[Rfam]
RNA sequence: CUUCAACGAGCCCAGCCACAACGGCCGUUCCGGAUCCCGGCCCCGUCCGUACGUGGCGAGGAGCGCCUGCGCCUC
Numbered sequence: 001c002u003u004c005a006a007c008g009a010g011c012c013c014a015g016c017c018a019c020a021a022c023g024g025c026c027g028u029u030c031c032g033g034a035u036c037c038c039g040g041c042c043c044c045g046u047c048c049g050u051a052c053g054u055g056g057c058g059a060g061g062a063g064c065g066c067c068u069g070c071g072c073c074u075c
Stems, first nucleotide, its partner, number of pairs: 015025003031071002038065002043060001047056003
Rfam assigns this 75-nucleotide sequence from Streptomyces sp. DSM 15324 to the family "ASpks TB sRNA". The match comes from Rfam's covariance-model search (77 bits). NCBI's taxonomy places the organism under Bacteria, Actinomycetes, Kitasatosporales, Streptomycetaceae, Streptomyces. The family's RNA type in Rfam is antisense RNA.